A member of the RNA family "Small nucleolar RNA snoR14", 89 nucleotides long. By type it is a C/D-box small nucleolar RNA. For this family Rfam cites "Multiple snoRNA gene clusters from Arabidopsis" (Brown et al., RNA, 2001).
RNA sequence: GCGAGGUGAUGAUGAAUGUAUGAAUGUCUGUCAAUCCCCUGAUGUCACAAAGUGAUGACUCCUCAUACAUCCCGACAGGCUCUGAUCGC
Numbered sequence: 001g002c003g004a005g006g007u008g009a010u011g012a013u014g015a016a017u018g019u020a021u022g023a024a025u026g027u028c029u030g031u032c033a034a035u036c037c038c039c040u041g042a043u044g045u046c047a048c049a050a051a052g053u054g055a056u057g058a059c060u061c062c063u064c065a066u067a068c069a070u071c072c073c074g075a076c077a078g079g080c081u082c083u084g085a086u087c088g089c
Base pairs, nucleotide, nucleotide: 001089002088003087004086